[Rfam]
Small nucleolar RNA snoR100: a 108-nucleotide sequence from Rhododendron simsii. Lineage of the source: Eukaryota > Mesangiospermae > eudicotyledons > Ericales > Rhododendron. By type it is an H/ACA-box small nucleolar RNA. The family's consensus secondary structure was predicted with WAR.
RNA sequence: CUAUGAACGAAGCAUGGUAAUGUGCACAAAAAUUGAUUUGGAUCUCUAGGCUUGCCCUCUAUGAUUCCUUUCAACUUUGAUUUGAGGGUAUGGUUCCGCAAAACAUUC
Numbered sequence: 001c002u003a004u005g006a007a008c009g010a011a012g013c014a015u016g017g018u019a020a021u022g023u024g025c026a027c028a029a030a031a032a033u034u035g036a037u038u039u040g041g042a043u044c045u046c047u048a049g050g051c052u053u054g055c056c057c058u059c060u061a062u063g064a065u066u067c068c069u070u071u072c073a074a075c076u077u078u079g080a081u082u083u084g085a086g087g088g089u090a091u092g093g094u095u096c097c098g099c100a101a102a103a104c105a106u107u108c
Stems, first nucleotide, its partner, number of pairs: 012025004040091001042089003050081001052079001054075001
Dot-bracket structure: ...........((((......))))..............(.(((.....(.(.(....................)...).).....))).).................